[Rfam]
RNA sequence: ACCAUCCUUGUCUUGGGGUUGAGCUACUGACCAAUGAACGUCUUAGUGAGGUCAGUACUGCUAACACCACUGACAACACACAAGUGCCACUAGUGAGCAAUCACUAGAAAGGUGCAAUUUUUGGCACC
Numbered sequence: 001a002c003c004a005u006c007c008u009u010g011u012c013u014u015g016g017g018g019u020u021g022a023g024c025u026a027c028u029g030a031c032c033a034a035u036g037a038a039c040g041u042c043u044u045a046g047u048g049a050g051g052u053c054a055g056u057a058c059u060g061c062u063a064a065c066a067c068c069a070c071u072g073a074c075a076a077c078a079c080a081c082a083a084g085u086g087c088c089a090c091u092a093g094u095g096a097g098c099a100a101u102c103a104c105u106a107g108a109a110a111g112g113u114g115c116a117a118u119u120u121u122u123g124g125c126a127c128c
Stems, first nucleotide, its partner, number of pairs: 006018004021061001023059001026056007038047002084115005091106006
U4atac minor spliceosomal RNA: a 128-nucleotide RNA sequence from Aquarana catesbeiana.
Rfam's curators write: U4atac is an essential component of the minor U12-type spliceosome complex which is required for removal of the rarer class of eukaryotic introns (AT-AC, U12-type).
Its family is annotated with spliceosomal tri-snRNP complex assembly, pre-mRNA 5'-splice site binding and U4atac snRNP in the Gene Ontology.